[Rfam]
RNA: small nucleolar RNA snoR117
Organism: Oryza brachyantha
RNA sequence: GGCCUGUGAUUUGAGACCAAUUGUCCGUACCAUCUGAGAUUCUUGAUGUUUCACAAUUGCCAAUUUAUCUAUGAGGCCC
Numbered sequence: 001g002g003c004c005u006g007u008g009a010u011u012u013g014a015g016a017c018c019a020a021u022u023g024u025c026c027g028u029a030c031c032a033u034c035u036g037a038g039a040u041u042c043u044u045g046a047u048g049u050u051u052c053a054c055a056a057u058u059g060c061c062a063a064u065u066u067a068u069c070u071a072u073g074a075g076g077c078c079c
Base pairs, nucleotide, nucleotide: 001078002077003076004075